[Rfam]
Rfam assigns this 52-nucleotide RNA from Leptolyngbya sp. NIES-3755 to the family "Nitrogen stress-induced RNA 1". The literature on the family includes a 2010 paper in J Mol Biol by Ionescu et al., "Heterocyst-specific transcription of NsiR1, a non-coding RNA encoded in a tandem array of direct repeats in cyanobacteria". The base pairs follow the family's consensus structure.
RNA sequence: UGGUAGAUGCACCCUGAUUAUUUGCCCUGGUUUCUGACCGGGGUUUUUUAUU
Number, nucleotide and partner (000 for none) at each position: 001u000002g013003g012004u011005a000006g000007a000008u000009g000010c000011a004012c003013c002014c000015u000016g000017a000018u000019u000020a000021u000022u000023u000024g044025c043026c042027c041028u040029g039030g038031u037032u036033u000034c000035u000036g032037a031038c030039c029040g028041g027042g026043g025044u024045u000046u000047u000048u000049u000050a000051u000052u000